mir-71 microRNA precursor family: a 72-nucleotide sequence from Armadillidium nasatum.
Its family is annotated with RISC complex and miRNA-mediated post-transcriptional gene silencing in the Gene Ontology.
A search with the family's covariance model found it, with a score of 72 bits.
Rfam 15.1 lists 372 matches to the family in 291 species.
[Rfam]
RNA sequence: UUCCUCUGAAAGACAUGGGUAGUGAGAUGUAAGAAAUUAGUGGCAUCUCACUACCUUGUCUUUCACGGGGAA
Number, nucleotide and partner (000 for none) at each position: 001u000002u000003c000004c000005u000006c000007u000008g064009a063010a062011a061012g060013a059014c058015a057016u000017g056018g055019g054020u000021a052022g051023u050024g049025a048026g047027a046028u045029g044030u000031a000032a000033g000034a000035a000036a000037u000038u000039a000040g000041u000042g000043g000044c029045a028046u027047c026048u025049c024050a023051c022052u021053a000054c019055c018056u017057u015058g014059u013060c012061u011062u010063u009064c008065a000066c000067g000068g000069g000070g000071a000072a000
NCBI's taxonomy places the organism under Eukaryota, Pancrustacea, Altocrustacea, Crinocheta, Armadillidium.